[Rfam]
RNA sequence: AUGAAGGCAAGGGGAGAGACCGUAUUUGCGGCACCGAAGGAGCAAAUGGUGAAUCCAUGAAUCUCUCAGGUACAGAGACUCUUGCUGGACG
Numbered sequence: 001a002u003g004a005a006g007g008c009a010a011g012g013g014g015a016g017a018g019a020c021c022g023u024a025u026u027u028g029c030g031g032c033a034c035c036g037a038a039g040g041a042g043c044a045a046a047u048g049g050u051g052a053a054u055c056c057a058u059g060a061a062u063c064u065c066u067c068a069g070g071u072a073c074a075g076a077g078a079c080u081c082u083u084g085c086u087g088g089a090c091g
Stems, first nucleotide, its partner, number of pairs: 006086008020031004033071003036067002040065003046058002
Glycine riboswitch aptamer: a 91-nucleotide sequence from Bacillus sp. FJAT-27986. The organism belongs to Bacillus, within Bacteria. From the family's description: This family represents the bacterial glycine riboswitch.